[Rfam]
RNA sequence: UCAACAGGUGAUGAAAUUUCCAUUGAACAUUCGCAGUUUCCCCGGAGCGGCAUACGAACCCAAUUUUGCCGCAGAUGUCGUGCAUAGUCCUUCCUUUGGAUGUCUGAUGUUG
Numbered sequence: 001u002c003a004a005c006a007g008g009u010g011a012u013g014a015a016a017u018u019u020c021c022a023u024u025g026a027a028c029a030u031u032c033g034c035a036g037u038u039u040c041c042c043c044g045g046a047g048c049g050g051c052a053u054a055c056g057a058a059c060c061c062a063a064u065u066u067u068g069c070c071g072c073a074g075a076u077g078u079c080g081u082g083c084a085u086a087g088u089c090c091u092u093c094c095u096u097u098g099g100a101u102g103u104c105u106g107a108u109g110u111u112g
Stems, first nucleotide, its partner, number of pairs: 003111004047072006

The family of this 112-nucleotide RNA sequence from Schizosaccharomyces pombe is "Small nucleolar RNA SNORD14". The literature on the family includes a 1996 paper in Nucleic Acids Res by Samarsky et al., "An essential domain in Saccharomyces cerevisiae U14 snoRNA is absent in vertebrates, but conserved in other yeasts". The base pairs follow the family's consensus structure, which was predicted with PFOLD. It is annotated as a C/D-box small nucleolar RNA. Lineage of the source: Eukaryota > Opisthokonta > Ascomycota > Taphrinomycotina > Schizosaccharomyces. About the family: U14 small nucleolar RNA (U14 snoRNA) is required for early cleavages of eukaryotic precursor rRNAs. In yeasts, this molecule possess a stem-loop region (known as the Y-domain) which is essential for function.